[Rfam]
RNA sequence: GUGACUCGCAGGUGGAGACACGCUGUACACCGGGAAUGCAUCGAACUCGCGUUUAAGCGGUCUGUAAGGCCGUCGGCGUCCUGGGGAAGGGUCACGGAAGUGACCCUUCUUUUUUAUUGU
Numbered sequence: 001g002u003g004a005c006u007c008g009c010a011g012g013u014g015g016a017g018a019c020a021c022g023c024u025g026u027a028c029a030c031c032g033g034g035a036a037u038g039c040a041u042c043g044a045a046c047u048c049g050c051g052u053u054u055a056a057g058c059g060g061u062c063u064g065u066a067a068g069g070c071c072g073u074c075g076g077c078g079u080c081c082u083g084g085g086g087a088a089g090g091g092u093c094a095c096g097g098a099a100g101u102g103a104c105c106c107u108u109c110u111u112u113u114u115u116a117u118u119g120u
Base pairs, nucleotide, nucleotide: 008026009025010024011023012021013020014019030084031083032082033081034080035079041076042075043074044053045052046051057073058072059071060070061069062068085110086109087108088107089106090105091104092103093102094101
RNA: DUF3800-I RNA
Organism: Schaalia cardiffensis